[Rfam]
RNA sequence: GGUAGUAAGAAUCAGACGGGUGAGAAUCCCGUCGGCCGAAGGGGGAAAGGUUUCCCAGGCAAUGAAAAUCAGCCUGGGGUUAGUCGAUCCUAAUUCAGGCUCCGAGUGGAGUCUGGAGAAAGGGAAAGGGGUUAAUAUUCCCCUACCGCUCCGAUAGAUGCGGUAACGCAACAUCCUUUCCCGACCCGGAAGGCUAGGCAUACACGGGGGUGGGGUAAAACUCACUUACCGUGCUAAGGGGGAUAGGACCGGGGAGUGCCGUCAUGGCGAGAACCGGUCUAAACCCUAAUGGGCCCGAAAGGGUUAUGCCGAGGCCUUCCGGCAAUGAAAAGGGAAAGGAUGCGAUUCGGAGCGAUCGUACCGAAAUCCAGAAUAGGUCCCCUGGGUGAGCAGCCUAAGGCCGUG
Numbered sequence: 001g002g003u004a005g006u007a008a009g010a011a012u013c014a015g016a017c018g019g020g021u022g023a024g025a026a027u028c029c030c031g032u033c034g035g036c037c038g039a040a041g042g043g044g045g046a047a048a049g050g051u052u053u054c055c056c057a058g059g060c061a062a063u064g065a066a067a068a069u070c071a072g073c074c075u076g077g078g079g080u081u082a083g084u085c086g087a088u089c090c091u092a093a094u095u096c097a098g099g100c101u102c103c104g105a106g107u108g109g110a111g112u113c114u115g116g117a118g119a120a121a122g123g124g125a126a127a128g129g130g131g132u133u134a135a136u137a138u139u140c141c142c143c144u145a146c147c148g149c150u151c152c153g154a155u156a157g158a159u160g161c162g163g164u165a166a167c168g169c170a171a172c173a174u175c176c177u178u179u180c181c182c183g184a185c186c187c188g189g190a191a192g193g194c195u196a197g198g199c200a201u202a203c204a205c206g207g208g209g210g211u212g213g214g215g216u217a218a219a220a221c222u223c224a225c226u227u228a229c230c231g232u233g234c235u236a237a238g239g240g241g242g243a244u245a246g247g248a249c250c251g252g253g254g255a256g257u258g259c260c261g262u263c264a265u266g267g268c269g270a271g272a273a274c275c276g277g278u279c280u281a282a283a284c285c286c287u288a289a290u291g292g293g294c295c296c297g298a299a300a301g302g303g304u305u306a307u308g309c310c311g312a313g314g315c316c317u318u319c320c321g322g323c324a325a326u327g328a329a330a331a332g333g334g335a336a337a338g339g340a341u342g343c344g345a346u347u348c349g350g351a352g353c354g355a356u357c358g359u360a361c362c363g364a365a366a367u368c369c370a371g372a373a374u375a376g377g378u379c380c381c382c383u384g385g386g387u388g389a390g391c392a393g394c395c396u397a398a399g400g401c402c403g404u405g
Stems, first nucleotide, its partner, number of pairs: 015033006034402004042382004049362002054078006063071002085358003089123002094117006101109002127144005147354008180334003186322009197310005203233005238287004248278005258268003368377002383397004